[Rfam]
Nucleotides: 090
Stems, first nucleotide, its partner, number of pairs: 001085004
Number, partner (000 for none) and nucleotide at each position: 001085g002084g003083g004082u005000u006000a007000u008000g009000a010000u011000g012000u013000u014000c015000a016000a017000a018000c019000u020000c021000a022000c023000g024000a025000u026000g027000g028000u029000c030000u031000g032000c033000a034000g035000a036000g037000u038000g039000c040000c041000c042000c043000g044000g045000c046000u047000g048000a049000g050000g051000g052000g053000c054000u055000g056000c057000u058000g059000a060000c061000a062000a063000u064000g065000c066000c067000a068000c069000u070000g071000g072000c073000a074000u075000c076000u077000a078000c079000u080000g081000a082004a083003c084002c085001c086000c087000a088000c089000a090000g

Overview:
Small nucleolar RNA SNORD35: a 90-nucleotide sequence from Hypocryptadius cinnamomeus. Rfam links the family to the GO terms nucleolus and RNA processing. It is annotated as a C/D-box small nucleolar RNA. Lineage of the source: Eukaryota > Teleostomi > Coelurosauria > Australaves > Hypocryptadius. The base pairs follow the family's consensus structure, which was predicted with PFOLD. On this family, see Nicoloso et al., J Mol Biol 1996: "Intron-encoded, antisense small nucleolar RNAs: the characterization of nine novel species points to their direct role as guides for the 2'-O-ribose methylation of rRNAs". Rfam's curators write: U35 is a C/D box snoRNA located in intron 6 of ribosomal protein L13A and intron 3 of ribosomal protein S11 in humans and at homologous positions in mouse and chicken ribosomal protein genes. U35 guides the methylation of 2'-O-ribose sites in 28S rRNA. The family is grouped with related families in Rfam's "SNORD35 clan".